[Rfam]
RNA sequence: UUAAAACAGCUCUGGGGUUGUUCCCACCCCAGAGGCCCACGUGGCGGCCAGUACACUGGUAUUGCGGUACCUUUGUACGCCUGUUUUAUAC
Numbered sequence: 001u002u003a004a005a006a007c008a009g010c011u012c013u014g015g016g017g018u019u020g021u022u023c024c025c026a027c028c029c030c031a032g033a034g035g036c037c038c039a040c041g042u043g044g045c046g047g048c049c050a051g052u053a054c055a056c057u058g059g060u061a062u063u064g065c066g067g068u069a070c071c072u073u074u075g076u077a078c079g080c081c082u083g084u085u086u087u088a089u090a091c
Stems, first nucleotide, its partner, number of pairs: 002088007010034009035045003047080002051078004058071004

The record is a 91-nucleotide RNA sequence from Enterovirus coxsackiepol, which matches "Enterovirus 5' cloverleaf cis-acting replication element" in Rfam. On this family, see Barton et al., EMBO J 2001: "5' cloverleaf in poliovirus RNA is a cis-acting replication element required for negative-strand synthesis". The family's RNA type in Rfam is cis-regulatory element. The organism belongs to Enterovirus C, within Viruses. This family represents a cis-regulatory element found at the 5' end of Enterovirus genomes.